Rfam assigns this 79-nucleotide RNA sequence from Dendroctonus ponderosae to the family "mir-263 microRNA precursor family". Clan: mir-182 clan. For this family Rfam cites "Direct sequencing and expression analysis of a large number of miRNAs in Aedes aegypti and a multi-species survey of novel mosquito miRNAs" (Li et al., BMC Genomics, 2009). A search with the family's covariance model found it, with a score of 62 bits.

[Rfam]
Nucleotides: 079
Base pairs, nucleotide, nucleotide: 003077004076005075006074007073008072009071010070014066015065016064017063018062020060021059022058023056025055026054027053029052030051031050032049034047
Number, partner (000 for none) and nucleotide at each position: 001000u002000u003077c004076c005075u006074a007073c008072g009071g010070g011000a012000c013000u014066u015065g016064g017063c018062a019000c020060u021059g022058g023056a024000a025055g026054a027053a028000u029052u030051c031050a032049c033000a034047g035000a036000u037000u038000g039000u040000u041000c042000c043000g044000g045000a046000a047034u048000c049032g050031u051030g052029g053027u054026u055025c056023u057000u058022u059021u060020a061000a062018u063017g064016c065015c066014a067000u068000a069000u070010u071009u072008c073007g074006u075005g076004g077003g078000g079000a